[Rfam]
RNA sequence: GGGUGUCGUCACAUAGGGUGUAGCGGCAGGUUGUUAGCGAAGGUCGGGCCGCCUCG
Numbered sequence: 001g002g003g004u005g006u007c008g009u010c011a012c013a014u015a016g017g018g019u020g021u022a023g024c025g026g027c028a029g030g031u032u033g034u035u036a037g038c039g040a041a042g043g044u045c046g047g048g049c050c051g052c053c054u055c056g
Base pairs, nucleotide, nucleotide: 005027006026007025008024009023011021012020038056039055040054042053043052044051
Dot-bracket structure: ....(((((.((.......)).)))))..........(((.(((......))))))

The record is a 56-nucleotide sequence from Comamonas sp. JNW, which matches "nhaA-I RNA" in Rfam. Acidobacteria, Alphaproteobacteria, Betaproteobacteria and Gammaproteobacteria, Verrucomicrobia, cand. division NC10. Rfam classes the family as a riboswitch. The match comes from Rfam's covariance-model search (50 bits).